RNA sequence: GCGAGGUGAUGAGGAAAUUCAUGGUCUGUCAAUCCACUGAUUGAUGAAAUCGUGAUGUUGCAUAUGAAUCCCGACACGUUCUGAUCGC
Numbered sequence: 001g002c003g004a005g006g007u008g009a010u011g012a013g014g015a016a017a018u019u020c021a022u023g024g025u026c027u028g029u030c031a032a033u034c035c036a037c038u039g040a041u042u043g044a045u046g047a048a049a050u051c052g053u054g055a056u057g058u059u060g061c062a063u064a065u066g067a068a069u070c071c072c073g074a075c076a077c078g079u080u081c082u083g084a085u086c087g088c
Stems, first nucleotide, its partner, number of pairs: 001088004
RNA: Small nucleolar RNA snoR14
Organism: Dendrobium nobile